[Rfam]
A member of the RNA family "mir-71 microRNA precursor family" from Echinococcus granulosus, 71 nucleotides long.
Taxonomically the source falls in Echinococcus (Eukaryota, Metazoa, Bilateria, Cestoda).
The base pairs follow the family's consensus structure, which was predicted with RNAalifold.
RNA sequence: AUCUCGUGAAAGACGAUGGUAGUGAGAUACAGAGGAAUCGAGCAUCUUGCUACUCCGUCUUUUCCUAAGAU
Numbered sequence: 001a002u003c004u005c006g007u008g009a010a011a012g013a014c015g016a017u018g019g020u021a022g023u024g025a026g027a028u029a030c031a032g033a034g035g036a037a038u039c040g041a042g043c044a045u046c047u048u049g050c051u052a053c054u055c056c057g058u059c060u061u062u063u064c065c066u067a068a069g070a071u
Base pairs, nucleotide, nucleotide: 008063009062010061011060012059013058014057015056018054019053021051022050023049024048025047026046027045028044